[Rfam]
RNA sequence: AGAGGUUGCGAGUGAGUUCAUAGCAAAAGCGCUCACAAUACGGUCACACCAGAUUCCAACGAAUCUGCAAAUUCUGCU
Numbered sequence: 001a002g003a004g005g006u007u008g009c010g011a012g013u014g015a016g017u018u019c020a021u022a023g024c025a026a027a028a029g030c031g032c033u034c035a036c037a038a039u040a041c042g043g044u045c046a047c048a049c050c051a052g053a054u055u056c057c058a059a060c061g062a063a064u065c066u067g068c069a070a071a072u073u074c075u076g077c078u
Stems, first nucleotide, its partner, number of pairs: 013046003018043002022078004027073002029041001031039001050067007
RNA: Mammalian CPEB3 ribozyme
Organism: Alligator mississippiensis